[Rfam]
RNA sequence: GCUUAGCCCCGAUGGAAACGGCAUCCUUUUUGUCUCGUUUUUUUUAAAACGAGACAAAAAGAUAUAGUGUACAGCGGGAUUAGCU
Numbered sequence: 001g002c003u004u005a006g007c008c009c010c011g012a013u014g015g016a017a018a019c020g021g022c023a024u025c026c027u028u029u030u031u032g033u034c035u036c037g038u039u040u041u042u043u044u045u046a047a048a049a050c051g052a053g054a055c056a057a058a059a060a061g062a063u064a065u066a067g068u069g070u071a072c073a074g075c076g077g078g079a080u081u082a083g084c085u
Base pairs, nucleotide, nucleotide: 009077010076011075013073014072018068019067023063024062025061029058030057031056032055033054034053035052036051037050038049039048040047041046
Dot-bracket structure: ........(((.((...((...(((...(((((((((((((....)))))))))))))..)))...))...)).)))........